Annotation:
This 66-nucleotide sequence from Haloarchaeobius iranensis belongs to the Rfam family "S15-Halobacteria ribosomal protein leader". The base pairs follow the family's consensus structure, which is taken from published work. Taxonomically the source falls in Haloarchaeobius (Archaea, Halobacteria, Halobacteriales, Halorubellaceae).
[Rfam]
RNA sequence: UCGGGAACAGCACGGCCGCAAAUCUGACUCGCCAUCGACUUCGAUGGCUUGGGAUUGCGGAGGUGC
Numbered sequence: 001u002c003g004g005g006a007a008c009a010g011c012a013c014g015g016c017c018g019c020a021a022a023u024c025u026g027a028c029u030c031g032c033c034a035u036c037g038a039c040u041u042c043g044a045u046g047g048c049u050u051g052g053g054a055u056u057g058c059g060g061a062g063g064u065g066c
Stems, first nucleotide, its partner, number of pairs: 010066004016060006024053002031048007
Annotation
The literature on the family includes a 2020 paper in BMC Microbiol by Eckert and Weinberg, "Discovery of 20 novel ribosomal leader candidates in bacteria and archaea". By type it is a cis-regulatory leader.